[Rfam]
About this RNA: A member of the RNA family "atpB RNA" from Corynebacterium mastitidis, 128 nucleotides long. Rfam's curators put it in the seed alignment. The base pairs follow the family's consensus structure, which is taken from published work.
RNA sequence: CUGGUUUCGUACCGUAGACGUGCGACGGAGUCCACGGCGGAGCCAGUGAGCAUGUAAGACGUCCAUCGCACCGUAGGAGUCUGCCUCCCUACGGCCCGAACACGGGAGAGAUCGCUGAGCGUUACAAC
Numbered sequence: 001c002u003g004g005u006u007u008c009g010u011a012c013c014g015u016a017g018a019c020g021u022g023c024g025a026c027g028g029a030g031u032c033c034a035c036g037g038c039g040g041a042g043c044c045a046g047u048g049a050g051c052a053u054g055u056a057a058g059a060c061g062u063c064c065a066u067c068g069c070a071c072c073g074u075a076g077g078a079g080u081c082u083g084c085c086u087c088c089c090u091a092c093g094g095c096c097c098g099a100a101c102a103c104g105g106g107a108g109a110g111a112u113c114g115c116u117g118a119g120c121g122u123u124a125c126a127a128c
Base pairs, nucleotide, nucleotide: 001046002045003044004043005042006041007040008039009038010037071094072093073092074091075090076089077088

By type it is a cis-regulatory element.